[Rfam]
RNA sequence: ACCGUGUACUUACUCACUAUAUAAUAGCCGAGAUAUAUGUAUUUCACCUAUUAUAUAGCAGGUAAGUACACGGUUU
Numbered sequence: 001a002c003c004g005u006g007u008a009c010u011u012a013c014u015c016a017c018u019a020u021a022u023a024a025u026a027g028c029c030g031a032g033a034u035a036u037a038u039g040u041a042u043u044u045c046a047c048c049u050a051u052u053a054u055a056u057a058g059c060a061g062g063u064a065a066g067u068a069c070a071c072g073g074u075u076u
Stems, first nucleotide, its partner, number of pairs: 001074014017058011030045002033042003
A member of the RNA family "mir-7563 microRNA precursor family" from Ameiurus melas, 76 nucleotides long. The family's consensus secondary structure was predicted with RNAalifold. Lineage of the source: Eukaryota > Vertebrata > Actinopterygii > Otophysi > Ameiurus. Rfam 15.1 lists 362 matches to the family in 2 species.